[Rfam]
RNA sequence: CUCUCGCUCAAAGAAUCGCAUUCGAAGCACACAAACAGAGAUGUGGUUUUAAACCCACAUCUCGGUCAGCUUAUGGCCAAUCCAUGCUUUGGGAGAAAGUCCCCGGACAGCCUUCAUUAUUUGUAGGAGUUGCGGAAACGCGCCGCCAUAGAAGCAAUCUAGCGGCUUAGUCCCUCUACUUUAUCCUUCGCUCUCUCCUUCCACCUUCUUGUCGUCUGUACCACUAUCUCGUUGACCUUGAGAACACAGUUCGUAGCCUUGGAGACCAUAUGGAUGAAGAUAUGAGUCCGAGCUUCUUGUGCGAUGUUCUGUCGGACCUUGGAAGAUUUGAUUGUGGGAGGCAUUUAGGAUGUUCUUAGGUCAGUGAGGGAUUGACCGGUAGUUGGGAGUUUUUUUCGUCGAGAUCGAUAGUUAUGCGAUUGCCCUUUCUACUACGCAAGUGGUAUGGAUGGGUAACUCGAUGGGGCUUAUUCUUGAUGCGAGA
Numbered sequence: 001c002u003c004u005c006g007c008u009c010a011a012a013g014a015a016u017c018g019c020a021u022u023c024g025a026a027g028c029a030c031a032c033a034a035a036c037a038g039a040g041a042u043g044u045g046g047u048u049u050u051a052a053a054c055c056c057a058c059a060u061c062u063c064g065g066u067c068a069g070c071u072u073a074u075g076g077c078c079a080a081u082c083c084a085u086g087c088u089u090u091g092g093g094a095g096a097a098a099g100u101c102c103c104c105g106g107a108c109a110g111c112c113u114u115c116a117u118u119a120u121u122u123g124u125a126g127g128a129g130u131u132g133c134g135g136a137a138a139c140g141c142g143c144c145g146c147c148a149u150a151g152a153a154g155c156a157a158u159c160u161a162g163c164g165g166c167u168u169a170g171u172c173c174c175u176c177u178a179c180u181u182u183a184u185c186c187u188u189c190g191c192u193c194u195c196u197c198c199u200u201c202c203a204c205c206u207u208c209u210u211g212u213c214g215u216c217u218g219u220a221c222c223a224c225u226a227u228c229u230c231g232u233u234g235a236c237c238u239u240g241a242g243a244a245c246a247c248a249g250u251u252c253g254u255a256g257c258c259u260u261g262g263a264g265a266c267c268a269u270a271u272g273g274a275u276g277a278a279g280a281u282a283u284g285a286g287u288c289c290g291a292g293c294u295u296c297u298u299g300u301g302c303g304a305u306g307u308u309c310u311g312u313c314g315g316a317c318c319u320u321g322g323a324a325g326a327u328u329u330g331a332u333u334g335u336g337g338g339a340g341g342c343a344u345u346u347a348g349g350a351u352g353u354u355c356u357u358a359g360g361u362c363a364g365u366g367a368g369g370g371a372u373u374g375a376c377c378g379g380u381a382g383u384u385g386g387g388a389g390u391u392u393u394u395u396u397c398g399u400c401g402a403g404a405u406c407g408a409u410a411g412u413u414a415u416g417c418g419a420u421u422g423c424c425c426u427u428u429c430u431a432c433u434a435c436g437c438a439a440g441u442g443g444u445a446u447g448g449a450u451g452g453g454u455a456a457c458u459c460g461a462u463g464g465g466g467c468u469u470a471u472u473c474u475u476g477a478u479g480c481g482a483g484a
Base pairs, nucleotide, nucleotide: 002484003483004482005481006480007479008477009476010475011474014421015420016419017418018417019416022093023091024090025089026088027087028086038063039062040061041060042059043058044057045056046055097469098468099467101466102465103464104463131142132141133140134139143165144164145163146162148160347393348392349391353389354388355387356386357385358384362382423453424452425451427449428448
The family of this 484-nucleotide RNA sequence from Scytalidium lignicola is "RNase MRP". NCBI's taxonomy places the organism under Eukaryota, Fungi, Pezizomycotina, leotiomyceta, Scytalidium. The match comes from Rfam's covariance-model search (102 bits). The literature on the family includes a 1993 paper in FASEB J by Schmitt et al., "Secondary structure of RNase MRP RNA as predicted by phylogenetic comparison".